The family of this 93-nucleotide sequence from Paenibacillus sp. IHBB 10380 is "c-di-GMP-I riboswitch aptamer". GEMM was predicted in a large-scale screen for bacterial structured RNA regulatory elements. Genes associated with GEMM are involved in a diverse array of functions, including chemotaxis regulation, signal transduction, secretion and chitin. Lineage of the source: Bacteria > Bacillati > Bacillota > Caryophanales > Paenibacillus.
Nucleotides: 093
Base pairs, nucleotide, nucleotide: 012037013036017032018031019030020029021028022027040087041086042085043084047083048082049079050078051077056073057072058071059070060069061068062067
Number, partner (000 for none) and nucleotide at each position: 001000u002000a003000c004000a005000g006000c007000a008000a009000a010000a011000a012037g013036c014000a015000c016000a017032c018031u019030a020029u021028u022027c023000g024000a025000a026000a027022g028021a029020a030019u031018a032017g033000g034000u035000c036013g037012c038000a039000a040087a041086a042085c043084u044000a045000c046000a047083g048082g049079g050078g051077c052000u053000a054000c055000c056073g057072c058071u059070u060069g061068u062067g063000u064000u065000u066000a067062c068061a069060c070059a071058g072057g073056u074000u075000a076000u077051g078050c079049c080000a081000g082048c083047c084043a085042g086041u087040u088000g089000c090000c091000u092000g093000u